[Rfam]
RNA sequence: UAAAUACUUCAGGGCAGGGUGCAAUUCCCGACCGGCGGUAAAGUCCGCGAACCUAUUUAGGUUGACUUGGUGAGAUUCCAAGACCGACAGUAAAGUCUGGAUGGAAGAAGUAGUAA
Numbered sequence: 001u002a003a004a005u006a007c008u009u010c011a012g013g014g015c016a017g018g019g020u021g022c023a024a025u026u027c028c029c030g031a032c033c034g035g036c037g038g039u040a041a042a043g044u045c046c047g048c049g050a051a052c053c054u055a056u057u058u059a060g061g062u063u064g065a066c067u068u069g070g071u072g073a074g075a076u077u078c079c080a081a082g083a084c085c086g087a088c089a090g091u092a093a094a095g096u097c098u099g100g101a102u103g104g105a106a107g108a109a110g111u112a113g114u115a116a
Stems, first nucleotide, its partner, number of pairs: 003114001005112006017029003031096002033086002035048004043084002051062003066082005088099003
Description:
FMN riboswitch aptamer (RFN element): a 116-nucleotide RNA from Alkalibaculum bacchi. The match comes from Rfam's covariance-model search (124 bits). Lineage of the source: Bacteria > Bacillota > Clostridia > Eubacteriaceae > Alkalibaculum. The RFN element is a highly conserved domain that is found frequently in the 5'-untranslated regions of prokaryotic mRNAs that encode for flavin mononucleotide (FMN) biosynthesis and transport proteins. Pairs were carried over by alignment from the consensus structure, which is taken from published work.